This 201-nucleotide RNA sequence from Anaerorhabdus furcosa belongs to the Rfam family "T-box leader". A search with the family's covariance model found it, with a score of 102 bits.

RNA sequence: AUAAAUUCUAAGAUAAAGAGGUUAUUUAAAGGCUAUUGUAGAGAAAGAAACAAUUGGUGAAAGUUUCUAUAGACUGAAUAAUAAUUGACACUUUUGAGAAGUAUUUCUGAACUAAAGUAGGAAAUAUCGUAUUCCGCGUUAAGGAUUGAAGUGCAUGGAAACAUGAACUAAGGUGGUACCACGUAAUUAAGCGUCCUUAGA
Numbered sequence: 001a002u003a004a005a006u007u008c009u010a011a012g013a014u015a016a017a018g019a020g021g022u023u024a025u026u027u028a029a030a031g032g033c034u035a036u037u038g039u040a041g042a043g044a045a046a047g048a049a050a051c052a053a054u055u056g057g058u059g060a061a062a063g064u065u066u067c068u069a070u071a072g073a074c075u076g077a078a079u080a081a082u083a084a085u086u087g088a089c090a091c092u093u094u095u096g097a098g099a100a101g102u103a104u105u106u107c108u109g110a111a112c113u114a115a116a117g118u119a120g121g122a123a124a125u126a127u128c129g130u131a132u133u134c135c136g137c138g139u140u141a142a143g144g145a146u147u148g149a150a151g152u153g154c155a156u157g158g159a160a161a162c163a164u165g166a167a168c169u170a171a172g173g174u175g176g177u178a179c180c181a182c183g184u185a186a187u188u189a190a191g192c193g194u195c196c197u198u199a200g201a
Base pairs, nucleotide, nucleotide: 007099008098015094016093017092018091021082022081023080024079025078026077034071035070036069046068047067048066049065050064051063102126103125104124105123106122107121108120128138129137130136154165155164156163157162170198171197172196173195181194182193183192184191